Rfam assigns this 73-nucleotide RNA sequence from Chelydra serpentina to the family "mir-16 microRNA precursor family". The family's consensus secondary structure was predicted with PFOLD. A search with the family's covariance model found it, with a score of 37 bits. On this family, see Jin et al., Mol Cell 2020: "Structural Basis for pri-miRNA Recognition by Drosha". Its family is annotated with miRNA-mediated post-transcriptional gene silencing and RISC complex in the Gene Ontology. Rfam 15.1 lists 4,705 matches to the family in 758 species.
RNA sequence: CACCAGCAGCAGCACAAAAGUAAGGGUGGCAUGGUAUGGUAUAGCCACCCUUACUUCUAUGCUGCUGCUGGUG
Numbered sequence: 001c002a003c004c005a006g007c008a009g010c011a012g013c014a015c016a017a018a019a020g021u022a023a024g025g026g027u028g029g030c031a032u033g034g035u036a037u038g039g040u041a042u043a044g045c046c047a048c049c050c051u052u053a054c055u056u057c058u059a060u061g062c063u064g065c066u067g068c069u070g071g072u073g
Stems, first nucleotide, its partner, number of pairs: 002072003008066007017056001019055008